[Rfam]
Nucleotides: 125
Base pairs, nucleotide, nucleotide: 007044008043009042011040012039014038015037016036017035018034048079049078050077051076052075053074054073055072056071057070089120090119091118092117093116094115095114096113097112098111099110
Number, partner (000 for none) and nucleotide at each position: 001000g002000a003000g004000u005000u006000u007044c008043g009042g010000a011040g012039c013000c014038g015037c016036g017035c018034u019000a020000u021000c022000c023000u024000c025000c026000u027000c028000c029000u030000c031000c032000c033000a034018g035017g036016c037015g038014c039012g040011c041000u042009u043008c044007g045000u046000u047000c048079g049078g050077u051076u052075a053074a054073c055072g056071a057070u058000c059000u060000c061000c062000u063000c064000c065000u066000c067000c068000c069000a070057g071056u072055c073054g074053u075052u076051a077050a078049c079048c080000c081000c082000u083000c084000a085000a086000a087000u088000g089120g090119c091118g092117c093116c094115c095114a096113c097112c098111g099110g100000a101000u102000a103000u104000c105000c106000u107000c108000c109000c110099c111098c112097g113096g114095u115094g116093g117092g118091c119090g120089c121000u122000a123000u124000u125000u